[Rfam]
This 93-nucleotide RNA sequence from Sousa chinensis belongs to the Rfam family "Small nucleolar RNA SNORD116". Lineage of the source: Eukaryota > Opisthokonta > Tetrapoda > Laurasiatheria > Sousa. The family's RNA type in Rfam is C/D-box small nucleolar RNA.

RNA sequence: GGAACAAUGAUGUCUUCCUCAUAUGCAUUCCUUGGAAGAUCUACAGGAAAUGAUUGUGAACACCCUACCGUCCCCUUAGUGAAACUGAGGUCC
Numbered sequence: 001g002g003a004a005c006a007a008u009g010a011u012g013u014c015u016u017c018c019u020c021a022u023a024u025g026c027a028u029u030c031c032u033u034g035g036a037a038g039a040u041c042u043a044c045a046g047g048a049a050a051u052g053a054u055u056g057u058g059a060a061c062a063c064c065c066u067a068c069c070g071u072c073c074c075c076u077u078a079g080u081g082a083a084a085c086u087g088a089g090g091u092c093c
Base pairs, nucleotide, nucleotide: 001093002092003091005089026056027055029053030052032048033047